[Rfam]
RNA sequence: GUGUAAGAUACAACCAUUAUGUCCAUCUAAAUUUAAUGAGUCGUGAUCUGAUUAUAUCAUCGUGUCUGUUUAUAUGCAAUAAAAAAGAACCUGAUAAAACCAUCAGGUUCUUUUUUUG
Numbered sequence: 001g002u003g004u005a006a007g008a009u010a011c012a013a014c015c016a017u018u019a020u021g022u023c024c025a026u027c028u029a030a031a032u033u034u035a036a037u038g039a040g041u042c043g044u045g046a047u048c049u050g051a052u053u054a055u056a057u058c059a060u061c062g063u064g065u066c067u068g069u070u071u072a073u074a075u076g077c078a079a080u081a082a083a084a085a086a087g088a089a090c091c092u093g094a095u096a097a098a099a100c101c102a103u104c105a106g107g108u109u110c111u112u113u114u115u116u117u118g
Stems, first nucleotide, its partner, number of pairs: 034072003039065001042062002083114012
RNA: Bacillus sRNA ncr1015